[Rfam]
Shown here is a 181-nucleotide sequence from Cytobacillus horneckiae, a member of the family "Lysine riboswitch aptamer". From the family's description: Riboswitches are metabolite binding domains within certain messenger RNAs that serve as precision sensors for their corresponding targets. The family's consensus secondary structure is taken from published work. Lineage of the source: Bacteria > Bacillota > Bacilli > Caryophanales > Cytobacillus.
RNA sequence: AGUGAAGGUAGAGGUGCGAGCUUCAUUAGUAAAAGUCUCUGAGAAGAUUGAGCUUCAUGGAAGAGCUUUGAAAGGGAAGGAUCGCCGAAGUGAGGAAAGACUCAUUGCUUUCUUUGCUGGUUCUGCAUUGAAUAAGUGCAGGAUUGUCAAGACUACGCCGUCUUGGAGUGCUAUCUCACUG
Numbered sequence: 001a002g003u004g005a006a007g008g009u010a011g012a013g014g015u016g017c018g019a020g021c022u023u024c025a026u027u028a029g030u031a032a033a034a035g036u037c038u039c040u041g042a043g044a045a046g047a048u049u050g051a052g053c054u055u056c057a058u059g060g061a062a063g064a065g066c067u068u069u070g071a072a073a074g075g076g077a078a079g080g081a082u083c084g085c086c087g088a089a090g091u092g093a094g095g096a097a098a099g100a101c102u103c104a105u106u107g108c109u110u111u112c113u114u115u116g117c118u119g120g121u122u123c124u125g126c127a128u129u130g131a132a133u134a135a136g137u138g139c140a141g142g143a144u145u146g147u148c149a150a151g152a153c154u155a156c157g158c159c160g161u162c163u164u165g166g167a168g169u170g171c172u173a174u175c176u177c178a179c180u181g
Stems, first nucleotide, its partner, number of pairs: 006176006016085004021080001022078003033069003037065004089118011119145011147166007